[Rfam]
RNA sequence: GGUCAAGAGUCUCAGCGUCAAGCCUCGGCUAGCUGAGCGGCAACCCUCCUCCGCGGUGGGGUGCUCCGAGUGACGACCCGGCCACGCCGCAUCCGCCGCGUGGCAAGCGCGGACC
Numbered sequence: 001g002g003u004c005a006a007g008a009g010u011c012u013c014a015g016c017g018u019c020a021a022g023c024c025u026c027g028g029c030u031a032g033c034u035g036a037g038c039g040g041c042a043a044c045c046c047u048c049c050u051c052c053g054c055g056g057u058g059g060g061g062u063g064c065u066c067c068g069a070g071u072g073a074c075g076a077c078c079c080g081g082c083c084a085c086g087c088c089g090c091a092u093c094c095g096c097c098g099c100g101u102g103g104c105a106a107g108c109g110c111g112g113a114c115c
Stems, first nucleotide, its partner, number of pairs: 001078004009038001011037006021030002039065003044061003048056002081104007089096002
Source information
The record is a 115-nucleotide RNA sequence from Allobranchiibius huperziae, which matches "SAM (S-adenosyl methionine) riboswitch aptamer" in Rfam. The match comes from Rfam's covariance-model search (111 bits). For this family Rfam cites "The aptamer core of SAM-IV riboswitches mimics the ligand-binding site of SAM-I riboswitches" (Weinberg et al., RNA, 2008). The base pairs follow the family's consensus structure, which is taken from published work.